Rfam assigns this 123-nucleotide RNA sequence from Rhizobium subbaraonis to the family "Alphaproteobacterial ar14". The literature on the family includes a 2012 paper in RNA Biol by del Val et al., "A survey of sRNA families in alpha-proteobacteria". Rfam 15.1 lists 784 matches to the family in 332 species. Lineage of the source: Bacteria > Pseudomonadota > Alphaproteobacteria > Rhizobiaceae > Rhizobium. The pairing is the family consensus, mapped onto this sequence.
[Rfam]
RNA sequence: AUCAGUCGGGCAUGGCACUCCUCCUCCCAGCCAAGCCCGAUGCGAUUGGUGACAACUCCUCCUCCCAACGUUGCCAAUCAGGAUAUGCGCCCGCCGGAUCUCCUCCCCCGGCGGGCGUUUUCU
Numbered sequence: 001a002u003c004a005g006u007c008g009g010g011c012a013u014g015g016c017a018c019u020c021c022u023c024c025u026c027c028c029a030g031c032c033a034a035g036c037c038c039g040a041u042g043c044g045a046u047u048g049g050u051g052a053c054a055a056c057u058c059c060u061c062c063u064c065c066c067a068a069c070g071u072u073g074c075c076a077a078u079c080a081g082g083a084u085a086u087g088c089g090c091c092c093g094c095c096g097g098a099u100c101u102c103c104u105c106c107c108c109c110g111g112c113g114g115g116c117g118u119u120u121u122c123u
Stems, first nucleotide, its partner, number of pairs: 007039005013033004044079010087118011